This 53-nucleotide sequence from Neptunicella marina belongs to the Rfam family "L31-Gammaproteobacteria ribosomal protein leader". A search with the family's covariance model found it, with a score of 35 bits. The family is grouped with related families in Rfam's "Ribosomal Protein L31 Leader clan". The family's RNA type in Rfam is cis-regulatory leader.
RNA sequence: CGUGUGGUGUUCAGCUUCGGGCUGGAUUGCGAUACGGGCCAAAAUGAAGAGGC
Numbered sequence: 001c002g003u004g005u006g007g008u009g010u011u012c013a014g015c016u017u018c019g020g021g022c023u024g025g026a027u028u029g030c031g032a033u034a035c036g037g038g039c040c041a042a043a044a045u046g047a048a049g050a051g052g053c
Stems, first nucleotide, its partner, number of pairs: 001036005007030002011025005